[Rfam]
RNA: L31-Corynebacteriaceae ribosomal protein leader
Organism: Corynebacterium flavescens
RNA sequence: ACUCAGGCACGAUCUACGCAAUUUUUGAGCGCGGAACCGACCUGAAGUUUCAACCCUGAGGGA
Dot-bracket structure: (((((((.....(((.(((.........))).))).....)))).)))...............
Numbered sequence: 001a002c003u004c005a006g007g008c009a010c011g012a013u014c015u016a017c018g019c020a021a022u023u024u025u026u027g028a029g030c031g032c033g034g035a036a037c038c039g040a041c042c043u044g045a046a047g048u049u050u051c052a053a054c055c056c057u058g059a060g061g062g063a
Stems, first nucleotide, its partner, number of pairs: 001048003004044004013035003017031003